[Rfam]
RNA: Metazoan signal recognition particle RNA
RNA sequence: GCCGGGCACGGUGGCUUGUGCCUGUAAUCCAAGCGCCAGGGAGGCUGAGGCUGGCGGACGGCUUGAGCCUGGGAGUUCUGGGCUGCAGCGAGCUGUGCUGAGCGGGCGUCCAUGCUAAGAUCAGCAUCGAUAUGGUGUUCUCCGGGGAGCCAGGGGGCACCAGGUCGCCUAAGGAGGGGUGAACCGGCCCAGGUCGGAAACGGAGCAGGUCAAAGCUCCUGUGCUGAUCAGUAGCGGGAUCGCGCCUGUGAACAGUCCCUGCAGCACAGCCUGGGCAAGAGAGCGGGACCCAGCUUCCU
Dot-bracket structure: (((((((((((....))))))))....(((.........)))))).((((((((....(.((((..(((((((....(((.(((((((.(.(((((.(...((((((((((.(((((.(((((((((((((.((((((((((.((....)).)))))))))).))))((...))((((((.....((((....(((....)))....))))...)))))))))))))))..)))))))...))))))))).)))))).))))))).))))))))))....)))).)...))))))))..